The record is a 196-nucleotide sequence from Caenorhabditis elegans, which matches "Caenorhabditis snoRNA ceN104" in Rfam. For this family Rfam cites "Systematic identification of non-coding RNA 2,2,7-trimethylguanosine cap structures in Caenorhabditis elegans" (Jia et al., BMC Mol Biol, 2007). It is one of the family's seed sequences.
[Rfam]
RNA sequence: AAGCAGUUCUCCAACAGAAAUAUGUGCAUGAAGUGAUGGUUUGGGUAACCAUUUCAUCUUUUCAUGUCAUAUAUCUCCUGCCUCUCACGGUUUCAUCUGUGAGAAGCUUCAAAGAACUGCAAUAGAAGUCUAGCUCGAGAUGCGUGUGCCGGUUUGCUUUUAAUGCAAUAUGGUUCCUUUUCUCCUCGGGACAGUU
Numbered sequence: 001a002a003g004c005a006g007u008u009c010u011c012c013a014a015c016a017g018a019a020a021u022a023u024g025u026g027c028a029u030g031a032a033g034u035g036a037u038g039g040u041u042u043g044g045g046u047a048a049c050c051a052u053u054u055c056a057u058c059u060u061u062u063c064a065u066g067u068c069a070u071a072u073a074u075c076u077c078c079u080g081c082c083u084c085u086c087a088c089g090g091u092u093u094c095a096u097c098u099g100u101g102a103g104a105a106g107c108u109u110c111a112a113a114g115a116a117c118u119g120c121a122a123u124a125g126a127a128g129u130c131u132a133g134c135u136c137g138a139g140a141u142g143c144g145u146g147u148g149c150c151g152g153u154u155u156g157c158u159u160u161u162a163a164u165g166c167a168a169u170a171u172g173g174u175u176c177c178u179u180u181u182c183u184c185c186u187c188g189g190g191a192c193a194g195u196u
Base pairs, nucleotide, nucleotide: 003120004119005118006117007116008115016025018023029064030063031062032061035058036057037056038055134190135189136188137187138186139185142182148174149173150172151171154168155167156166157165